[Rfam]
RNA sequence: AGCCACCACCACGGGAGUCCGGACAGCCGGGCUGAGAGGAAGCGACACGCGCUUCGACCGUCGAACCUGAUCCGGAUCAUGCCGGCGCAGGGAGGAGUUCAGAUGAGUAC
Numbered sequence: 001a002g003c004c005a006c007c008a009c010c011a012c013g014g015g016a017g018u019c020c021g022g023a024c025a026g027c028c029g030g031g032c033u034g035a036g037a038g039g040a041a042g043c044g045a046c047a048c049g050c051g052c053u054u055c056g057a058c059c060g061u062c063g064a065a066c067c068u069g070a071u072c073c074g075g076a077u078c079a080u081g082c083c084g085g086c087g088c089a090g091g092g093a094g095g096a097g098u099u100c101a102g103a104u105g106a107g108u109a110c
Base pairs, nucleotide, nucleotide: 007097009095010094011061012060013059014058017032018031019030020029021028039055040054041053042052043051066091067090068089069088072085073084074083075082